[Rfam]
RNA: TPP riboswitch aptamer (THI element)
RNA sequence: GCAUGUUCCAAGGGGGGUCCCGGUCCAGGGGCUGAGAUAGCGCUGGGGCAUCCUGCCCGCCGCGCUGACCCUUUGAACCUGAUCCGGGUCAUGCCGGCGAAGGGACAGGAACGGGCCGCCACG
Numbered sequence: 001g002c003a004u005g006u007u008c009c010a011a012g013g014g015g016g017g018u019c020c021c022g023g024u025c026c027a028g029g030g031g032c033u034g035a036g037a038u039a040g041c042g043c044u045g046g047g048g049c050a051u052c053c054u055g056c057c058c059g060c061c062g063c064g065c066u067g068a069c070c071c072u073u074u075g076a077a078c079c080u081g082a083u084c085c086g087g088g089u090c091a092u093g094c095c096g097g098c099g100a101a102g103g104g105a106c107a108g109g110a111a112c113g114g115g116c117c118g119c120c121a122c123g
Base pairs, nucleotide, nucleotide: 006111007110008109009108011072012071013070014069017032018031019030020029021028039066040065041064042063043062078103079102080101084097085096086095087094